[Rfam]
RNA sequence: CAAUUUAAAAAACUCCGAGUCCUGCAUUUCCGACGUAUAGAACCGGUUACAUAUACGGGAAAGCCGGACCAAUGGGUAUCACCGGGAACGGUGGUGCCUGCCUGAUUGCGAAGGAGUCCAUUAUUAUAUCGG
Numbered sequence: 001c002a003a004u005u006u007a008a009a010a011a012a013c014u015c016c017g018a019g020u021c022c023u024g025c026a027u028u029u030c031c032g033a034c035g036u037a038u039a040g041a042a043c044c045g046g047u048u049a050c051a052u053a054u055a056c057g058g059g060a061a062a063g064c065c066g067g068a069c070c071a072a073u074g075g076g077u078a079u080c081a082c083c084g085g086g087a088a089c090g091g092u093g094g095u096g097c098c099u100g101c102c103u104g105a106u107u108g109c110g111a112a113g114g115a116g117u118c119c120a121u122u123a124u125u126a127u128a129u130c131g132g
Stems, first nucleotide, its partner, number of pairs: 006123001012117005019069004024064001027063001028060004035054004074099011100109002
RNA: Molybdenum/Tungsten riboswitch aptamer (Moco RNA motif)
Organism: Dorea sp. D27